RNA: Small Cajal body specific RNA 23
Organism: Carlito syrichta
RNA sequence: GCGCUCACUAGGCCUCGGUUCUCUCCACAUGGUCCUGACCCCCCCUCUGUGAGCAAGAGAAAUAGAACUGGUUUGGGGGUGUCCUGUCCAAGGGGACACAGGACAUCACGGUUUUCAGUACAACA
Numbered sequence: 001g002c003g004c005u006c007a008c009u010a011g012g013c014c015u016c017g018g019u020u021c022u023c024u025c026c027a028c029a030u031g032g033u034c035c036u037g038a039c040c041c042c043c044c045c046u047c048u049g050u051g052a053g054c055a056a057g058a059g060a061a062a063u064a065g066a067a068c069u070g071g072u073u074u075g076g077g078g079g080u081g082u083c084c085u086g087u088c089c090a091a092g093g094g095g096a097c098a099c100a101g102g103a104c105a106u107c108a109c110g111g112u113u114u115u116c117a118g119u120a121c122a123a124c125a
Base pairs, nucleotide, nucleotide: 003054004053005052006051007050008049012044017040018039019038020037025032026031065121067119068118069117070116071115073111074110075109078107079106080105081104082103083102084101085100086097087096088095089094